[Rfam]
RNA sequence: CUCUCGAAAAGGCAAAACCCGAGUAAUCGGGUGACGCAAAGUCACGGGUCCCAAUGGGACAGCCGGACCGCCACA
Numbered sequence: 001c002u003c004u005c006g007a008a009a010a011g012g013c014a015a016a017a018c019c020c021g022a023g024u025a026a027u028c029g030g031g032u033g034a035c036g037c038a039a040a041g042u043c044a045c046g047g048g049u050c051c052c053a054a055u056g057g058g059a060c061a062g063c064c065g066g067a068c069c070g071c072c073a074c075a
Stems, first nucleotide, its partner, number of pairs: 012037002017032006041068003045065003048060005
The family of this 75-nucleotide RNA from Neptuniibacter caesariensis is "c-di-GMP-I riboswitch aptamer". Gene Ontology term of the family: cyclic-di-GMP binding. Rfam's curators put it in the seed alignment.